[Rfam]
RNA sequence: AAAAAGGGCUUUUGCUGUGCAUGGCAUGGGGGAGCACUAAGGCUGCCCCUGCAGACUCAACAUCAAGAGACUUUGGAAACACAAUUUUUGUGCCAUGUCUCCUGUUCUUAUAGAACAAAGGCC
Numbered sequence: 001a002a003a004a005a006g007g008g009c010u011u012u013u014g015c016u017g018u019g020c021a022u023g024g025c026a027u028g029g030g031g032g033a034g035c036a037c038u039a040a041g042g043c044u045g046c047c048c049c050u051g052c053a054g055a056c057u058c059a060a061c062a063u064c065a066a067g068a069g070a071c072u073u074u075g076g077a078a079a080c081a082c083a084a085u086u087u088u089u090g091u092g093c094c095a096u097g098u099c100u101c102c103u104g105u106u107c108u109u110a111u112a113g114a115a116c117a118a119a120g121g122c123c
Stems, first nucleotide, its partner, number of pairs: 008080001010078003013026005027051006034044001035042001052075004057070002098121003103117005

Annotation: A member of the RNA family "U11 spliceosomal RNA" from Bucco capensis, 123 nucleotides long. Its family is annotated with mRNA 5'-splice site recognition, pre-mRNA 5'-splice site binding and U11 snRNP in the Gene Ontology. The match comes from Rfam's covariance-model search (52 bits). It is annotated as a spliceosomal small nuclear RNA. The base pairs follow the family's consensus structure, which is taken from published work.